[Rfam]
RNA sequence: UUUUUUGGCGGUGGCAAUGAUCCCUGGAUUGUACUAUGGACGCCUGUGAUCCGGGAAGAGCCAGUGGCGUAACCGACCCCAACAAGG
Dot-bracket structure: ((((.(.(.((.(((.......(((((((........[[[[[[[....)))))))....)))...]]]]]..]]..)).).).))))
Numbered sequence: 001u002u003u004u005u006u007g008g009c010g011g012u013g014g015c016a017a018u019g020a021u022c023c024c025u026g027g028a029u030u031g032u033a034c035u036a037u038g039g040a041c042g043c044c045u046g047u048g049a050u051c052c053g054g055g056a057a058g059a060g061c062c063a064g065u066g067g068c069g070u071a072a073c074c075g076a077c078c079c080c081a082a083c084a085a086g087g
Stems, first nucleotide, its partner, number of pairs: 001087004006082001008080001010078002013062003023055007038074002040070005